[Rfam]
Rfam assigns this 85-nucleotide RNA from Artemisia annua to the family "mir-160 microRNA precursor family".
Lineage of the source: Eukaryota > eudicotyledons > asterids > campanulids > Artemisia.
Rfam links the family to the GO terms RISC complex and miRNA-mediated post-transcriptional gene silencing.
A search with the family's covariance model found it, with a score of 69 bits.
RNA sequence: AUAUGCCUGGCUCCCUGUAUGCCAUUUGCAGAGUUCAUUGUGCAUCAAUGACCUCCGUGUAUGGCGUAUGAGGAGCCGUGCAUAU
Numbered sequence: 001a002u003a004u005g006c007c008u009g010g011c012u013c014c015c016u017g018u019a020u021g022c023c024a025u026u027u028g029c030a031g032a033g034u035u036c037a038u039u040g041u042g043c044a045u046c047a048a049u050g051a052c053c054u055c056c057g058u059g060u061a062u063g064g065c066g067u068a069u070g071a072g073g074a075g076c077c078g079u080g081c082a083u084a085u
Stems, first nucleotide, its partner, number of pairs: 001085006008078007016070009027059003